About this RNA
A member of the RNA family "Metazoan signal recognition particle RNA" from Alligator mississippiensis, 294 nucleotides long. Rfam's curators write: The signal recognition particle (SRP) is a universally conserved ribonucleoprotein. NCBI's taxonomy places the organism under Eukaryota, Opisthokonta, Eumetazoa, Gnathostomata, Alligator. On this family, see Wild et al., Curr Opin Struct Biol 2002: "Towards the structure of the mammalian signal recognition particle". The family's consensus secondary structure is taken from published work.

RNA sequence: GCCGGCACGCUGGCUCGUGCCUGCAAUCCCAGCUGCUGGGGAGCAGAAGCUGGUGGAUCACUUGAGCAGGGGAGCUCUGGGCUGCCUUGUGCCCUGCUGAGCAGGUGUCCACCCUAGGGCUAGCACCAACCUGCUGGUGUGUGGGGAGCUGCAGGUCCCCAGGUCGGCUAAGCAAGUGAACCAGCUCCGGCCAGGAAUGGUGCAGGUCAAAGCUCCUGUGCUGACCAGUGCUGGGACAGCACCUGCGAAUGGCCCUUGUGCCCAGCCUGGACAAGAGAGGGGGCUCAACCUCUU
Numbered sequence: 001g002c003c004g005g006c007a008c009g010c011u012g013g014c015u016c017g018u019g020c021c022u023g024c025a026a027u028c029c030c031a032g033c034u035g036c037u038g039g040g041g042a043g044c045a046g047a048a049g050c051u052g053g054u055g056g057a058u059c060a061c062u063u064g065a066g067c068a069g070g071g072g073a074g075c076u077c078u079g080g081g082c083u084g085c086c087u088u089g090u091g092c093c094c095u096g097c098u099g100a101g102c103a104g105g106u107g108u109c110c111a112c113c114c115u116a117g118g119g120c121u122a123g124c125a126c127c128a129a130c131c132u133g134c135u136g137g138u139g140u141g142u143g144g145g146g147a148g149c150u151g152c153a154g155g156u157c158c159c160c161a162g163g164u165c166g167g168c169u170a171a172g173c174a175a176g177u178g179a180a181c182c183a184g185c186u187c188c189g190g191c192c193a194g195g196a197a198u199g200g201u202g203c204a205g206g207u208c209a210a211a212g213c214u215c216c217u218g219u220g221c222u223g224a225c226c227a228g229u230g231c232u233g234g235g236a237c238a239g240c241a242c243c244u245g246c247g248a249a250u251g252g253c254c255c256u257u258g259u260g261c262c263c264a265g266c267c268u269g270g271a272c273a274a275g276a277g278a279g280g281g282g283g284c285u286c287a288a289c290c291u292c293u294u
Stems, first nucleotide, its partner, number of pairs: 001044002004021006027041003046292002049289001051287002055284001058282002061279003066272001070268003077265006084259002089254001091253003095249001097247001101246008109235002112233001115230002118226002121223006127166001129164005136157003140153005167173002175214003184207003191200003
By type it is a non-coding RNA gene. The family is grouped with related families in Rfam's "SRP clan".